Rfam assigns this 83-nucleotide RNA sequence from Prolemur simus to the family "Small nucleolar RNA SNORD45".
RNA sequence: GGUUAGUCAUGAGCUGGCUGGCGUAUAUUCUGAAUCUAAAGUUGCUUAUUACUACUUUAGCUCUAGAAUCACACUGAGACUUG
Numbered sequence: 001g002g003u004u005a006g007u008c009a010u011g012a013g014c015u016g017g018c019u020g021g022c023g024u025a026u027a028u029u030c031u032g033a034a035u036c037u038a039a040a041g042u043u044g045c046u047u048a049u050u051a052c053u054a055c056u057u058u059a060g061c062u063c064u065a066g067a068a069u070c071a072c073a074c075u076g077a078g079a080c081u082u083g
Base pairs, nucleotide, nucleotide: 001081002080003079004078

Overview: On this family, see Galardi et al., Mol Cell Biol 2002: "Purified box C/D snoRNPs are able to reproduce site-specific 2'-O-methylation of target RNA in vitro". The organism belongs to Prolemur, within Eukaryota.